[Rfam]
RNA: MIR6151 microRNA precursor family
RNA sequence: AUUCAUUGGAUGAGUGUGAGGCGUUGGAUCGAUUUCACUCAAUCCAAUCCUCACAUUCAUCAGGUGUUCAU
Numbered sequence: 001a002u003u004c005a006u007u008g009g010a011u012g013a014g015u016g017u018g019a020g021g022c023g024u025u026g027g028a029u030c031g032a033u034u035u036c037a038c039u040c041a042a043u044c045c046a047a048u049c050c051u052c053a054c055a056u057u058c059a060u061c062a063g064g065u066g067u068u069c070a071u
Stems, first nucleotide, its partner, number of pairs: 004066001006064002009061010020050002024047006031040002